The family of this 319-nucleotide RNA from Zeaxanthinibacter enoshimensis is "Bacterial RNase P class A".
NCBI's taxonomy places the organism under Bacteria, Flavobacteriia, Flavobacteriales, Flavobacteriaceae, Zeaxanthinibacter.
It is annotated as a ribozyme.
A search with the family's covariance model found it, with a score of 197 bits.

[Rfam]
RNA sequence: AAAGCAGGCUACCUUAUCGCUUCCCGUAUCUUGCGGGGGGAGGAAAGUCCGGACACCAUAGUGCAGCAUAGCGGGUAACACCCGUCGUCCCGGGUUCCCCGGGAAAGGACAAGUGCAACAGAAAGCAAGUACAGGUAAUGCUGUAGUGAAAUCAGGUAAACUCUAUGCGGUGAAACGCCAUGUAUAUCAGCGAUCGAGGGCUGCACGCCCGAGCUGAAGGGUAGGCGGUUAGAGCUUCCGGGUAACCGGGAGUCGAGAUAAAUGAUAAGGAUCUUCCCUAUGGGAGGAAACAGAAUCCGGCUUAUGGCCUGCUUUUUUU
Numbered sequence: 001a002a003a004g005c006a007g008g009c010u011a012c013c014u015u016a017u018c019g020c021u022u023c024c025c026g027u028a029u030c031u032u033g034c035g036g037g038g039g040g041a042g043g044a045a046a047g048u049c050c051g052g053a054c055a056c057c058a059u060a061g062u063g064c065a066g067c068a069u070a071g072c073g074g075g076u077a078a079c080a081c082c083c084g085u086c087g088u089c090c091c092g093g094g095u096u097c098c099c100c101g102g103g104a105a106a107g108g109a110c111a112a113g114u115g116c117a118a119c120a121g122a123a124a125g126c127a128a129g130u131a132c133a134g135g136u137a138a139u140g141c142u143g144u145a146g147u148g149a150a151a152u153c154a155g156g157u158a159a160a161c162u163c164u165a166u167g168c169g170g171u172g173a174a175a176c177g178c179c180a181u182g183u184a185u186a187u188c189a190g191c192g193a194u195c196g197a198g199g200g201c202u203g204c205a206c207g208c209c210c211g212a213g214c215u216g217a218a219g220g221g222u223a224g225g226c227g228g229u230u231a232g233a234g235c236u237u238c239c240g241g242g243u244a245a246c247c248g249g250g251a252g253u254c255g256a257g258a259u260a261a262a263u264g265a266u267a268a269g270g271a272u273c274u275u276c277c278c279u280a281u282g283g284g285a286g287g288a289a290a291c292a293g294a295a296u297c298c299g300g301c302u303u304a305u306g307g308c309c310u311g312c313u314u315u316u317u318u319u
Base pairs, nucleotide, nucleotide: 001315002314003313004312005311006310007309008308009307010306011305012270013269014268015267016266017265018264020040021039022038023037024036025035026034027033028032045303046302047301049300050299051298052297053296054172055171056170057169061206062205063204064203066168067167068166069165070164071085072084073083074082075081086107088104089103090102091101092100093099108163109162113161114160115157116156130145131144132143133142134141176227177226178225179224187217188216189215190214191213198210199209200208201207234253235252236251237250238249239248240247241246